[Rfam]
RNA: Arthropod 7SK RNA
RNA sequence: GGAAGUGUGUGUCAAGUGAUGGCACAGCUGAACAUUGAUCGCUAAGAGAUAGGCAGAUCUGCUCAGUACGUGUUGUCACGUGGUCGAUUCCAGAAGUCUGUGAAUGCCCCCGUUGCCUUGCCGCACGGUUGAGUAUUUCUCGGCUCCUCGAACUACCGCGAUUUCCAAAUUGGGGGGAUUUCGACUAGGUCAGACGAGGUAAUUUAGUCGCUUCCAUAUACAGGCACUGCAGUGAGCAGUAUGCCCUUAUUUUUU
Numbered sequence: 001g002g003a004a005g006u007g008u009g010u011g012u013c014a015a016g017u018g019a020u021g022g023c024a025c026a027g028c029u030g031a032a033c034a035u036u037g038a039u040c041g042c043u044a045a046g047a048g049a050u051a052g053g054c055a056g057a058u059c060u061g062c063u064c065a066g067u068a069c070g071u072g073u074u075g076u077c078a079c080g081u082g083g084u085c086g087a088u089u090c091c092a093g094a095a096g097u098c099u100g101u102g103a104a105u106g107c108c109c110c111c112g113u114u115g116c117c118u119u120g121c122c123g124c125a126c127g128g129u130u131g132a133g134u135a136u137u138u139c140u141c142g143g144c145u146c147c148u149c150g151a152a153c154u155a156c157c158g159c160g161a162u163u164u165c166c167a168a169a170u171u172g173g174g175g176g177g178a179u180u181u182c183g184a185c186u187a188g189g190u191c192a193g194a195c196g197a198g199g200u201a202a203u204u205u206a207g208u209c210g211c212u213u214c215c216a217u218a219u220a221c222a223g224g225c226a227c228u229g230c231a232g233u234g235a236g237c238a239g240u241a242u243g244c245c246c247u248u249a250u251u252u253u254u255u
Stems, first nucleotide, its partner, number of pairs: 001215007016079005028066003033061002037059004041054003223245003226240005